[Rfam]
RNA sequence: AAGUUUCUCACCUUGCUUACACAUCAUUAUCUUAGUGGAUUUCAGUGAGGUCAUUGAUCUAUGAUUUGUUUGUUACACACACUGAAGCUC
Numbered sequence: 001a002a003g004u005u006u007c008u009c010a011c012c013u014u015g016c017u018u019a020c021a022c023a024u025c026a027u028u029a030u031c032u033u034a035g036u037g038g039a040u041u042u043c044a045g046u047g048a049g050g051u052c053a054u055u056g057a058u059c060u061a062u063g064a065u066u067u068g069u070u071u072g073u074u075a076c077a078c079a080c081a082c083u084g085a086a087g088c089u090c
Base pairs, nucleotide, nucleotide: 002089003088004087005086
RNA: Small nucleolar RNA R11/Z151